[Rfam]
RNA: M-box riboswitch aptamer (ykoK leader)
RNA sequence: AUAAAGAUUUGUUAGGUGAGGCUCCUAUACAAACACAGGCUACUGCCCAAAAAUGUCGAGAGACGCCAAUGGGUAGAACAGGGAUUGUCGAGUACAAGGCUUUCCAUAAGGUAGCUAAAAGAGAGUGAUUUCUUUUUACGUUGUAUAGUGCCAAAACUCAACGAAUAGAUCUCAUU
Numbered sequence: 001a002u003a004a005a006g007a008u009u010u011g012u013u014a015g016g017u018g019a020g021g022c023u024c025c026u027a028u029a030c031a032a033a034c035a036c037a038g039g040c041u042a043c044u045g046c047c048c049a050a051a052a053a054u055g056u057c058g059a060g061a062g063a064c065g066c067c068a069a070u071g072g073g074u075a076g077a078a079c080a081g082g083g084a085u086u087g088u089c090g091a092g093u094a095c096a097a098g099g100c101u102u103u104c105c106a107u108a109a110g111g112u113a114g115c116u117a118a119a120a121g122a123g124a125g126u127g128a129u130u131u132c133u134u135u136u137u138a139c140g141u142u143g144u145a146u147a148g149u150g151c152c153a154a155a156a157c158u159c160a161a162c163g164a165a166u167a168g169a170u171c172u173c174a175u176u
Stems, first nucleotide, its partner, number of pairs: 005172006011162002013097001015158003020152003025148008039115005045074005054065004082105003087100003117136006